[Rfam]
RNA sequence: CAAAGGACUGCGGGAGAGAUCGGCUUAGGCCGGCGCCGAAGGAGCAACCGCCCCGGAAACUCUCAGGCAAAAGGACCGCAGUGUCCGG
Numbered sequence: 001c002a003a004a005g006g007a008c009u010g011c012g013g014g015a016g017a018g019a020u021c022g023g024c025u026u027a028g029g030c031c032g033g034c035g036c037c038g039a040a041g042g043a044g045c046a047a048c049c050g051c052c053c054c055g056g057a058a059a060c061u062c063u064c065a066g067g068c069a070a071a072a073g074g075a076c077c078g079c080a081g082u083g084u085c086c087g088g
Stems, first nucleotide, its partner, number of pairs: 007082007020033004035068003038064002042062003048056002

Annotation:
Rfam assigns this 88-nucleotide sequence from Devosia pacifica to the family "Glycine riboswitch aptamer". Taxonomically the source falls in Devosia (Bacteria, Pseudomonadati, Hyphomicrobiales, Devosiaceae).